The record is a 117-nucleotide RNA sequence from Flavonifractor sp. An52, which matches "Molybdenum/Tungsten riboswitch aptamer (Moco RNA motif)" in Rfam. The family's consensus secondary structure is taken from published work. NCBI's taxonomy places the organism under Bacteria, Bacillota, Clostridia, Oscillospiraceae, Flavonifractor.
RNA sequence: AAAUUGAGUGUGCUCCGAGCGGAACCGCCUAAGGGCCUGGCCUAUGGCGUACCGCCAGGGUCGUUCUGGAAACGGCACGGCCUUCCGUCUUUGAAAAGGAGUCUCUUUCACAGGGGG
Numbered sequence: 001a002a003a004u005u006g007a008g009u010g011u012g013c014u015c016c017g018a019g020c021g022g023a024a025c026c027g028c029c030u031a032a033g034g035g036c037c038u039g040g041c042c043u044a045u046g047g048c049g050u051a052c053c054g055c056c057a058g059g060g061u062c063g064u065u066c067u068g069g070a071a072a073c074g075g076c077a078c079g080g081c082c083u084u085c086c087g088u089c090u091u092u093g094a095a096a097a098g099g100a101g102u103c104u105c106u107u108u109c110a111c112a113g114g115g116g117g
Stems, first nucleotide, its partner, number of pairs: 004110001006108001012102005019055004024050002027048003033043004058083007066075003084094002